Annotation: The family of this 75-nucleotide sequence from Streptomyces klenkii is "ASpks TB sRNA". It is annotated as an antisense RNA. The match comes from Rfam's covariance-model search (69 bits). Pairs were carried over by alignment from the consensus structure, which is taken from published work. On this family, see Arnvig and Young, Mol Microbiol 2009: "Identification of small RNAs in Mycobacterium tuberculosis". Taxonomically the source falls in Streptomyces (Bacteria, Actinomycetota, Actinomycetes, Streptomycetaceae).

RNA sequence: CUUCACCGUGCCCAGCAGCAGCGGCCGGCCCUCCGGCCGCUGCUGUCCGUACGUGGCGAUCAGUGCCUGGGCCUC
Numbered sequence: 001c002u003u004c005a006c007c008g009u010g011c012c013c014a015g016c017a018g019c020a021g022c023g024g025c026c027g028g029c030c031c032u033c034c035g036g037c038c039g040c041u042g043c044u045g046u047c048c049g050u051a052c053g054u055g056g057c058g059a060u061c062a063g064u065g066c067c068u069g070g071g072c073c074u075c
Stems, first nucleotide, its partner, number of pairs: 015025002031071003038065002044059001047056003